RNA sequence: AUAAUGAUACUUCUGCCCAGUCCCAGCCGCAAGCAAGGAGGGCAGCCGGGAGAGAUCCUCGCGGGGGUGAGACGCCCAUGA
Numbered sequence: 001a002u003a004a005u006g007a008u009a010c011u012u013c014u015g016c017c018c019a020g021u022c023c024c025a026g027c028c029g030c031a032a033g034c035a036a037g038g039a040g041g042g043c044a045g046c047c048g049g050g051a052g053a054g055a056u057c058c059u060c061g062c063g064g065g066g067g068u069g070a071g072a073c074g075c076c077c078a079u080g081a
Stems, first nucleotide, its partner, number of pairs: 012078001013045006046064003050060003065077003
Description
Shown here is an 81-nucleotide RNA from Pseudoflavonifractor sp. An184, a member of the family "pemK RNA". NCBI's taxonomy places the organism under Bacteria, Clostridia, Eubacteriales, Oscillospiraceae, Pseudoflavonifractor.